[Rfam]
RNA sequence: GGUCACGAGUACCAGCGACAAGCCCCGGCUAGCUGGUCGGCAACCCUCCUUCCGCGGUGGGGUGCCCCGGGUGAGGACCAGGUCCCGACACGACCGUGUCAGACAAGCGCGGACC
Dot-bracket structure: ((((....(.((((((....((......)).)))))))(((..(((.((......))..))).))).........))))..(((..(((((....))))).)))...........